[Rfam]
RNA sequence: GGGCUGCUAGCUCAAUGGCAGAGCUGUGGACUUUUAAUCCAUAGGUUCGGGGUUCGAGUCCCCGGCGGCCCA
Numbered sequence: 001g002g003g004c005u006g007c008u009a010g011c012u013c014a015a016u017g018g019c020a021g022a023g024c025u026g027u028g029g030a031c032u033u034u035u036a037a038u039c040c041a042u043a044g045g046u047u048c049g050g051g052g053u054u055c056g057a058g059u060c061c062c063c064g065g066c067g068g069c070c071c072a
Stems, first nucleotide, its partner, number of pairs: 001071007010024004026042005048064005
The record is a 72-nucleotide sequence from Catellatospora sp. TT07R-123, which matches "tRNA" in Rfam. The match comes from Rfam's covariance-model search (69 bits).